[Rfam]
RNA sequence: GAGGUCGCACGCGACUGGCGCGGUCAAGGUGGGGCACCACCGGGGAGCGAACGAACAGUCCGGACGCCGCGCGCCUGGGUGGACGGG
Numbered sequence: 001g002a003g004g005u006c007g008c009a010c011g012c013g014a015c016u017g018g019c020g021c022g023g024u025c026a027a028g029g030u031g032g033g034g035c036a037c038c039a040c041c042g043g044g045g046a047g048c049g050a051a052c053g054a055a056c057a058g059u060c061c062g063g064a065c066g067c068c069g070c071g072c073g074c075c076u077g078g079g080u081g082g083a084c085g086g087g
Base pairs, nucleotide, nucleotide: 003056005054006053007052010049011048012047015044016043017075018074019073020072021071029040030039031038032037065081066080067079068078
RNA: ZMP/ZTP riboswitch aptamer (pfl RNA motif)
Organism: Actinomadura spongiicola